[Rfam]
RNA sequence: AAUUUAUGCCGUUGUUGCUGACGUUGUCAGCCCAGCCCAGGCAGCCCCGGUCUUAAAUGCUGCGGCGUGUACACUGGACGGACCAGUCCGCUCAGCAUCCAUUCGGGCAGUAUGGGCCGGAGUAUUAAACUCAGGGGGUUGC
Number, nucleotide and partner (000 for none) at each position: 001a000002a000003u000004u000005u000006a000007u000008g000009c000010c000011g000012u034013u000014g032015u000016u000017g031018c030019u029020g028021a027022c026023g000024u000025u000026g022027u021028c020029a019030g018031c017032c014033c000034a012035g000036c000037c000038c000039a000040g000041g063042c062043a061044g060045c059046c000047c000048c000049g079050g000051u077052c076053u000054u000055a000056a000057a000058u000059g045060c044061u043062g042063c041064g075065g074066c000067g072068u000069g000070u000071a000072c067073a000074c065075u064076g052077g051078a000079c049080g000081g000082a000083c000084c000085a000086g000087u000088c000089c000090g000091c000092u000093c000094a000095g000096c000097a000098u000099c000100c000101a000102u000103u000104c000105g000106g000107g142108c141109a140110g000111u000112a000113u000114g000115g000116g000117c135118c134119g000120g132121a131122g130123u129124a000125u000126u000127a000128a000129a123130c122131u121132c120133a000134g118135g117136g000137g000138g000139u000140u109141g108142c107

Shown here is a 142-nucleotide sequence from Acerihabitans arboris, a member of the family "radC RNA".